[Rfam]
RNA sequence: AGCCAAGCGAUGAGCACAAAGCGAACUAUUCUUUCGCCUUUUACUAAAGAAUACCGUGUGCUCGUUGUAUAAAUUGACAUACGCCUAUUUUUGGAGAGUUCUCCCGAAAGGUAGAACU
Numbered sequence: 001a002g003c004c005a006a007g008c009g010a011u012g013a014g015c016a017c018a019a020a021g022c023g024a025a026c027u028a029u030u031c032u033u034u035c036g037c038c039u040u041u042u043a044c045u046a047a048a049g050a051a052u053a054c055c056g057u058g059u060g061c062u063c064g065u066u067g068u069a070u071a072a073a074u075u076g077a078c079a080u081a082c083g084c085c086u087a088u089u090u091u092u093g094g095a096g097a098g099u100u101c102u103c104c105c106g107a108a109a110g111g112u113a114g115a116a117c118u
Stems, first nucleotide, its partner, number of pairs: 004076003008067011027053008097118006
RNA: U5 spliceosomal RNA